[Rfam]
RNA: Pseudomonas rpsL leader
Organism: Pseudomonas mangiferae
RNA sequence: CGCCCGGGCCUUGUCUUGACUGGGCGCUGCAGUCUCUUUAGACUCAUGCACCCUUAAAUUUGGCAGGGCAUAACGCUCUGCCAUUUUGCUUUCGUAAUGCAAUAGCGUCGAAAGACCACAGUGGAGCGUAUAGA
Numbered sequence: 001c002g003c004c005c006g007g008g009c010c011u012u013g014u015c016u017u018g019a020c021u022g023g024g025c026g027c028u029g030c031a032g033u034c035u036c037u038u039u040a041g042a043c044u045c046a047u048g049c050a051c052c053c054u055u056a057a058a059u060u061u062g063g064c065a066g067g068g069c070a071u072a073a074c075g076c077u078c079u080g081c082c083a084u085u086u087u088g089c090u091u092u093c094g095u096a097a098u099g100c101a102a103u104a105g106c107g108u109c110g111a112a113a114g115a116c117c118a119c120a121g122u123g124g125a126g127c128g129u130a131u132a133g134a
Base pairs, nucleotide, nucleotide: 004018006016007015008014009013022053023052024051026049027048031044034041035040061083062082063081064080065079066078067077068076069075101131105127106126107116108115109114
Dot-bracket structure: ...(.((((...)))).)...(((.((...(..((....))..)...)).))).......(((((((((.....))))))))).................(...(((((....))).........))...)...